[Rfam]
RNA sequence: UAACAUUACGCGGCGACGUUUUACAAGAUGGUUACUUAAGUAACUUGGUUAAGCCGAGGUAAGGCGAUUGGAAUUGCCGCAGUUCUAAGUCUGCCUCGGUUUUGCUAG
Numbered sequence: 001u002a003a004c005a006u007u008a009c010g011c012g013g014c015g016a017c018g019u020u021u022u023a024c025a026a027g028a029u030g031g032u033u034a035c036u037u038a039a040g041u042a043a044c045u046u047g048g049u050u051a052a053g054c055c056g057a058g059g060u061a062a063g064g065c066g067a068u069u070g071g072a073a074u075u076g077c078c079g080c081a082g083u084u085c086u087a088a089g090u091c092u093g094c095c096u097c098g099g100u101u102u103u104g105c106u107a108g
Stems, first nucleotide, its partner, number of pairs: 010080005018024002032043004045108005054099008063090001070086005
Rfam assigns this 108-nucleotide sequence to the family "RT-12 RNA". The sequence is in the family's curated seed alignment. Rfam classes the family as a small RNA. The base pairs follow the family's consensus structure, which is taken from published work.